[Rfam]
RNA sequence: GGAGGCCAAUGAUGUUUUCAAUAGUGCCUACAUCGUUAGAUUUGUCUUAACUAUGAUAAGAGUAACCUGGAUUCUGAGGCCUCU
Numbered sequence: 001g002g003a004g005g006c007c008a009a010u011g012a013u014g015u016u017u018u019c020a021a022u023a024g025u026g027c028c029u030a031c032a033u034c035g036u037u038a039g040a041u042u043u044g045u046c047u048u049a050a051c052u053a054u055g056a057u058a059a060g061a062g063u064a065a066c067c068u069g070g071a072u073u074c075u076g077a078g079g080c081c082u083c084u
Base pairs, nucleotide, nucleotide: 001084002083004081005080006079007078
The family of this 84-nucleotide RNA sequence from Trema orientale is "Small nucleolar RNA SNORD34". For this family Rfam cites "The high diversity of snoRNAs in plants: identification and comparative study of 120 snoRNA genes from Oryza sativa" (Chen et al., Nucleic Acids Res, 2003). The family is grouped with related families in Rfam's "SNORD34 clan". The source organism's lineage runs through Eukaryota, Viridiplantae, Streptophyta, eudicotyledons and Trema. The base pairs follow the family's consensus structure, which was predicted with PFOLD. About the family: snoRNA U34 is found in intron 5 of the ribosomal protein L13a gene in humans.